[Rfam]
RNA sequence: AGGAAAAGUAGAGGUUGCGUGAAUUAUGAGUAACAGGCCGGAUGCAGCAGGGGCAGAAGAAGGCUUGUGAAAGGAAGGAGCGCCGAAGAGGAGUAUCACCUGACAGUACGAAUCUGGGCAUAGGGCUAAGAACCGUAUGACUGUCAUCCGUGCGGAUGGGGAGCUACUUAAAGA
Number, nucleotide and partner (000 for none) at each position: 001a000002g000003g000004a000005a000006a169007a168008g167009u166010a165011g164012a000013g000014g000015u000016u000017g083018c082019g081020u080021g000022a000023a000024u076025u075026a000027u000028g000029a000030g000031u000032a000033a068034c067035a066036g065037g064038c063039c062040g000041g000042a000043u000044g000045c000046a000047g000048c000049a000050g000051g000052g000053g000054c000055a000056g000057a000058a000059g000060a000061a000062g039063g038064c037065u036066u035067g034068u033069g000070a000071a000072a000073g000074g000075a025076a024077g000078g000079a000080g020081c019082g018083c017084c000085g000086a000087a115088g114089a113090g000091g000092a000093g109094u108095a107096u106097c000098a000099c000100c000101u000102g000103a000104c000105a000106g096107u095108a094109c093110g000111a000112a000113u089114c088115u087116g142117g141118g000119c139120a138121u137122a136123g000124g134125g133126c000127u000128a000129a000130g000131a000132a000133c125134c124135g000136u122137a121138u120139g119140a000141c117142u116143g000144u159145c158146a157147u156148c155149c154150g000151u000152g000153c000154g149155g148156a147157u146158g145159g144160g000161g000162a000163g000164c011165u010166a009167c008168u007169u006170a000171a000172a000173g000174a000
Lysine riboswitch aptamer: a 174-nucleotide sequence from Lachnospiraceae bacterium AM48-27BH. Lineage of the source: Bacteria > Bacillati > Clostridia > Lachnospirales > Lachnospiraceae.